[Rfam]
RNA sequence: ACCUGAAAAUAGCAAAUACUUUGAAAGAAGUAUACGCAAAGUUUCGGGCCUAAAGUAUAUACCUACUACCACUAUACGUUAGUAUAUACAAUGGCGGCCGGGCAGCUAGG
Numbered sequence: 001a002c003c004u005g006a007a008a009a010u011a012g013c014a015a016a017u018a019c020u021u022u023g024a025a026a027g028a029a030g031u032a033u034a035c036g037c038a039a040a041g042u043u044u045c046g047g048g049c050c051u052a053a054a055g056u057a058u059a060u061a062c063c064u065a066c067u068a069c070c071a072c073u074a075u076a077c078g079u080u081a082g083u084a085u086a087u088a089c090a091a092u093g094g095c096g097g098c099c100g101g102g103c104a105g106c107u108a109g110g
Stems, first nucleotide, its partner, number of pairs: 012037002017032006041103003045100003048095003055089008